[Rfam]
RNA sequence: UAACAAGGUUUUUUAUUGGUUCUUCUGCAGUGCGCCAAAGGAAGCCUUAGCAGCCUGAAAGGGUGUAUCUCCGCGACUAUAAAUAAAAAGGGGAUUUUAAAUGCUAGUCUGAUAAAAAAAGGCGACAUUGCCAAAUUGCGGGAAGUCCCUAAAGAUUCAACUACUAAGCAGCUUGUGGAAACACAGUUGUGGCCGAGUUAAUAGCCCUGGGUAUAGUAACAAUGUUGAAUAUGACUCUUAAUUGAGGAAAUGGGUGAUCCGCAGCCAAAUCCUAAGGACAUUUUAUUGUCUAUGGAUGCAGUUCACAGGCCAGAUGGCAAUGGGUAUCCUAGUGGGAUAUAUAUAUAUGGAUGCUUAAGAUAUGGUCGAGCUUCUCUCGAAAGAGAG
Numbered sequence: 001u002a003a004c005a006a007g008g009u010u011u012u013u014u015a016u017u018g019g020u021u022c023u024u025c026u027g028c029a030g031u032g033c034g035c036c037a038a039a040g041g042a043a044g045c046c047u048u049a050g051c052a053g054c055c056u057g058a059a060a061g062g063g064u065g066u067a068u069c070u071c072c073g074c075g076a077c078u079a080u081a082a083a084u085a086a087a088a089a090g091g092g093g094a095u096u097u098u099a100a101a102u103g104c105u106a107g108u109c110u111g112a113u114a115a116a117a118a119a120a121g122g123c124g125a126c127a128u129u130g131c132c133a134a135a136u137u138g139c140g141g142g143a144a145g146u147c148c149c150u151a152a153a154g155a156u157u158c159a160a161c162u163a164c165u166a167a168g169c170a171g172c173u174u175g176u177g178g179a180a181a182c183a184c185a186g187u188u189g190u191g192g193c194c195g196a197g198u199u200a201a202u203a204g205c206c207c208u209g210g211g212u213a214u215a216g217u218a219a220c221a222a223u224g225u226u227g228a229a230u231a232u233g234a235c236u237c238u239u240a241a242u243u244g245a246g247g248a249a250a251u252g253g254g255u256g257a258u259c260c261g262c263a264g265c266c267a268a269a270u271c272c273u274a275a276g277g278a279c280a281u282u283u284u285a286u287u288g289u290c291u292a293u294g295g296a297u298g299c300a301g302u303u304c305a306c307a308g309g310c311c312a313g314a315u316g317g318c319a320a321u322g323g324g325u326a327u328c329c330u331a332g333u334g335g336g337a338u339a340u341a342u343a344u345a346u347a348u349g350g351a352u353g354c355u356u357a358a359g360a361u362a363u364g365g366u367c368g369a370g371c372u373u374c375u376c377u378c379g380a381a382a383g384a385g386a387g
Base pairs, nucleotide, nucleotide: 005048006047007046008045009044010043011042012041013040014039052105053104054103126322127321128320129319130318132316133315137263138262139261140260141259142258147254148253149252264302265301269297270296271295272294277290278289279288280287306368308367309366310365311364312363324354325353326352327351328350329349332346374387375386376385377384378383
A member of the RNA family "Group I catalytic intron" from Pneumocystis carinii, 387 nucleotides long. The sequence is in the family's curated seed alignment. Gene Ontology term of the family: Group I intron splicing. The family has 12 seed sequences and 5,602 matches in Rfam 15.1.